[Rfam]
RNA: mir-17 microRNA precursor family
RNA sequence: GUACCAAAGUGCUCACAGUGCAGGUAGUCUGGGCUUUUCUCUACUGUAGUGUGGGCACUUCCGGUAAC
Numbered sequence: 001g002u003a004c005c006a007a008a009g010u011g012c013u014c015a016c017a018g019u020g021c022a023g024g025u026a027g028u029c030u031g032g033g034c035u036u037u038u039c040u041c042u043a044c045u046g047u048a049g050u051g052u053g054g055g056c057a058c059u060u061c062c063g064g065u066a067a068c
Base pairs, nucleotide, nucleotide: 003065004064005063007060008059009058010057011056012055013054014053015052016051017050019048020047021046023045024044025043026042027041